[Rfam]
RNA sequence: UAAAUAGCGGGUGAUGGGGUUCACCAUAAAUACUAUAAAUGCGAAAGCUGAUGACUCCUACAAGUAU
Numbered sequence: 001u002a003a004a005u006a007g008c009g010g011g012u013g014a015u016g017g018g019g020u021u022c023a024c025c026a027u028a029a030a031u032a033c034u035a036u037a038a039a040u041g042c043g044a045a046a047g048c049u050g051a052u053g054a055c056u057c058c059u060a061c062a063a064g065u066a067u
Stems, first nucleotide, its partner, number of pairs: 010025004016058006041048002
The record is a 67-nucleotide RNA sequence from Aminobacterium colombiense, which matches "Fluoride riboswitch aptamer (crcB RNA motif)" in Rfam.
The match comes from Rfam's covariance-model search (50 bits).